RNA: mir-156 microRNA precursor family
RNA sequence: GUGACAGAAGAGAGUGAGCACCCAUGGUCUUUCUUGCAAAUAGUGCGUUCUCAUGUGCUUGAAGCUAUGCGUGCUCACCCUCUAUCUGUCAC
Numbered sequence: 001g002u003g004a005c006a007g008a009a010g011a012g013a014g015u016g017a018g019c020a021c022c023c024a025u026g027g028u029c030u031u032u033c034u035u036g037c038a039a040a041u042a043g044u045g046c047g048u049u050c051u052c053a054u055g056u057g058c059u060u061g062a063a064g065c066u067a068u069g070c071g072u073g074c075u076c077a078c079c080c081u082c083u084a085u086c087u088g089u090c091a092c
Stems, first nucleotide, its partner, number of pairs: 001092008010082003014078008023069005